[Rfam]
RNA sequence: UGUCAUUAAAGGGAUGAAGCUCCCCUUUGGAAAUAUCCGAAUCGCUGGCAACGGCUGAUGGCUUCUACAGGAGU
Numbered sequence: 001u002g003u004c005a006u007u008a009a010a011g012g013g014a015u016g017a018a019g020c021u022c023c024c025c026u027u028u029g030g031a032a033a034u035a036u037c038c039g040a041a042u043c044g045c046u047g048g049c050a051a052c053g054g055c056u057g058a059u060g061g062c063u064u065c066u067a068c069a070g071g072a073g074u
Stems, first nucleotide, its partner, number of pairs: 010026004016065006044055004
A member of the RNA family "Fluoride riboswitch aptamer (crcB RNA motif)" from Caproicibacter fermentans, 74 nucleotides long. NCBI's taxonomy places the organism under Bacteria, Bacillati, Bacillota, Clostridia, Caproicibacter. The base pairs follow the family's consensus structure, which is taken from published work.